[Rfam]
RNA sequence: UCUCGUCUAAACAAUGCAAUCCCAACCUCUAAAGCAUCUUAUGUAGCUCUUCUAACUACGCCUAAAUAGAAUAAACUUCCUAAAAAUAAA
Numbered sequence: 001u002c003u004c005g006u007c008u009a010a011a012c013a014a015u016g017c018a019a020u021c022c023c024a025a026c027c028u029c030u031a032a033a034g035c036a037u038c039u040u041a042u043g044u045a046g047c048u049c050u051u052c053u054a055a056c057u058a059c060g061c062c063u064a065a066a067u068a069g070a071a072u073a074a075a076c077u078u079c080c081u082a083a084a085a086a087u088a089a090a
Stems, first nucleotide, its partner, number of pairs: 035069001039065002042060005048054001